[Rfam]
RNA sequence: GGACAUAAACGGGGAUCACAAUAGCUUUUCUGGACUCGGCUGCGAAGCCGACACCUCCACCAAAUCUUCCCUUCAUUGGGGGCGCAUGGGGGUGAAAUAGGAUCGACAGGAAGUGAAAAGGUCUUACUUUGUCCCGGUGAGCUACCACCGUUAUCGGUGCAAGCAUGAUAGUUGCCAAUGACAACCGUGCUCCGGUGGCGCUGGCUGCGUAA
Numbered sequence: 001g002g003a004c005a006u007a008a009a010c011g012g013g014g015a016u017c018a019c020a021a022u023a024g025c026u027u028u029u030c031u032g033g034a035c036u037c038g039g040c041u042g043c044g045a046a047g048c049c050g051a052c053a054c055c056u057c058c059a060c061c062a063a064a065u066c067u068u069c070c071c072u073u074c075a076u077u078g079g080g081g082g083c084g085c086a087u088g089g090g091g092g093u094g095a096a097a098u099a100g101g102a103u104c105g106a107c108a109g110g111a112a113g114u115g116a117a118a119a120g121g122u123c124u125u126a127c128u129u130u131g132u133c134c135c136g137g138u139g140a141g142c143u144a145c146c147a148c149c150g151u152u153a154u155c156g157g158u159g160c161a162a163g164c165a166u167g168a169u170a171g172u173u174g175c176c177a178a179u180g181a182c183a184a185c186c187g188u189g190c191u192c193c194g195g196u197g198g199c200g201c202u203g204g205c206u207g208c209g210u211a212a
Stems, first nucleotide, its partner, number of pairs: 001134005014124001017121001026113003030109003036051005052094007135150004
permuted transfer-messenger RNA: a 212-nucleotide RNA sequence from Paenirhodobacter populi. The match comes from Rfam's covariance-model search (140 bits). A reference for the family is Williams and Bartel (1996), "Phylogenetic analysis of tmRNA secondary structure", RNA.